[Rfam]
RNA sequence: CUCCCCGAAAUGCCUUGAGGGACAGCCUCAUACAAAUGUGCUGGAGGUAGAGCACUGGAUGGACUAGGGGGCUUCACCGCCUACCAAACCCAACCAAACUCCGAAUGCCAGUACACAACGUAUGGGAGUGAGACUGCGGGCGACAAGGUUCGUAGUCGAGAGGGAAACAGCCCAGACCGUCGGCUAAGGUCCCGAAAUACCGCUCAGUGUAAAAUGAUGUGUGAUUGCGAAGACAGCCAGGAGGUUGGCUUAGAAGCAGCCAUUCCUUUAAAGAGUGCGUAAUAGCUCACUGGUCGAGUAGUCAUGCGCAGACAAUGUAACGGGGCUAAGCGGUAUACCGAAGCCACGGAAUCUACUCGCGAGGGUAGGUUGGUAGGGGAGCAUUCCACAGACCGACGAAGGUGGCCUGGAAAGGUAGCUGGAGGGAGUGGAAGAGAGAAU
Numbered sequence: 001c002u003c004c005c006c007g008a009a010a011u012g013c014c015u016u017g018a019g020g021g022a023c024a025g026c027c028u029c030a031u032a033c034a035a036a037u038g039u040g041c042u043g044g045a046g047g048u049a050g051a052g053c054a055c056u057g058g059a060u061g062g063a064c065u066a067g068g069g070g071g072c073u074u075c076a077c078c079g080c081c082u083a084c085c086a087a088a089c090c091c092a093a094c095c096a097a098a099c100u101c102c103g104a105a106u107g108c109c110a111g112u113a114c115a116c117a118a119c120g121u122a123u124g125g126g127a128g129u130g131a132g133a134c135u136g137c138g139g140g141c142g143a144c145a146a147g148g149u150u151c152g153u154a155g156u157c158g159a160g161a162g163g164g165a166a167a168c169a170g171c172c173c174a175g176a177c178c179g180u181c182g183g184c185u186a187a188g189g190u191c192c193c194g195a196a197a198u199a200c201c202g203c204u205c206a207g208u209g210u211a212a213a214a215u216g217a218u219g220u221g222u223g224a225u226u227g228c229g230a231a232g233a234c235a236g237c238c239a240g241g242a243g244g245u246u247g248g249c250u251u252a253g254a255a256g257c258a259g260c261c262a263u264u265c266c267u268u269u270a271a272a273g274a275g276u277g278c279g280u281a282a283u284a285g286c287u288c289a290c291u292g293g294u295c296g297a298g299u300a301g302u303c304a305u306g307c308g309c310a311g312a313c314a315a316u317g318u319a320a321c322g323g324g325g326c327u328a329a330g331c332g333g334u335a336u337a338c339c340g341a342a343g344c345c346a347c348g349g350a351a352u353c354u355a356c357u358c359g360c361g362a363g364g365g366u367a368g369g370u371u372g373g374u375a376g377g378g379g380a381g382c383a384u385u386c387c388a389c390a391g392a393c394c395g396a397c398g399a400a401g402g403u404g405g406c407c408u409g410g411a412a413a414g415g416u417a418g419c420u421g422g423a424g425g426g427a428g429u430g431g432a433a434g435a436g437a438g439a440a441u
Stems, first nucleotide, its partner, number of pairs: 001381006011024002014021002026128001027126007037115008050102001051100002056096003060092003067085002069082004132157010162173003177349004182345003188339003197336007215310002219307010236294005242267003247261003268272001273288001277286002350371008382436001384433006393425002401420003405416004
Rfam assigns this 441-nucleotide part of an RNA from Gracilinema caldarium to the family "Bacterial large subunit ribosomal RNA". The base pairs follow the family's consensus structure, which is taken from published work. The organism belongs to Gracilinema caldarium, within Bacteria.